[Rfam]
RNA sequence: UAAUUGCAAAGGCAAACCAUUCGAAAGAGUGGGACGCAAAAUCACGGGUCUAAAGCACAAGUUGCCAUGACAGCCGGAUUGCCGAG
Number, nucleotide and partner (000 for none) at each position: 001u000002a000003a000004u000005u000006g000007c000008a000009a000010a000011g000012g037013c036014a000015a000016a000017c032018c031019a030020u029021u028022c027023g000024a000025a000026a000027g022028a021029g020030u019031g018032g017033g000034a000035c000036g013037c012038a000039a000040a080041a079042u078043c077044a000045c076046g075047g074048g071049u070050c069051u000052a000053a000054a000055g065056c064057a063058c000059a000060a000061g000062u000063u057064g056065c055066c000067a000068u000069g050070a049071c048072a000073g000074c047075c046076g045077g043078a042079u041080u040081g000082c000083c000084g000085a000086g000
The record is an 86-nucleotide RNA from Cohnella rhizosphaerae, which matches "c-di-GMP-I riboswitch aptamer" in Rfam. The match comes from Rfam's covariance-model search (84 bits). NCBI's taxonomy places the organism under Bacteria, Bacillati, Bacillota, Paenibacillaceae, Cohnella.